[Rfam]
RNA sequence: CCUCCAUUCUUGGCAUGCACGCUUUCUCCCUGUAUCCGUGUAUGUAUGUUAUGGAGGGAUAACAAGGCCAGUGCUAUGUCUUCGGUGCCAGAAUGUUCCCGGUCUUCUGGUUCUAUCCUCAAUCGCUGGUACUUCA
Numbered sequence: 001c002c003u004c005c006a007u008u009c010u011u012g013g014c015a016u017g018c019a020c021g022c023u024u025u026c027u028c029c030c031u032g033u034a035u036c037c038g039u040g041u042a043u044g045u046a047u048g049u050u051a052u053g054g055a056g057g058g059a060u061a062a063c064a065a066g067g068c069c070a071g072u073g074c075u076a077u078g079u080c081u082u083c084g085g086u087g088c089c090a091g092a093a094u095g096u097u098c099c100c101g102g103u104c105u106u107c108u109g110g111u112u113c114u115a116u117c118c119u120c121a122a123u124c125g126c127u128g129g130u131a132c133u134u135c136a
Base pairs, nucleotide, nucleotide: 001057002056003055004054005053014044015043016042017041018040019039021037025034069128070127071126072125073124088110089109090108091107092106093105095104

This 136-nucleotide sequence from Hucho hucho belongs to the Rfam family "Small nucleolar RNA SNORA57". The match comes from Rfam's covariance-model search (76 bits). Lineage of the source: Eukaryota > Deuterostomia > Craniata > Gnathostomata > Hucho. From the family's description: U99 belongs to the H/ACA class of snoRNAs which are thought to guide the sites of modification of uridines to pseudouridines, the target for this family is unknown.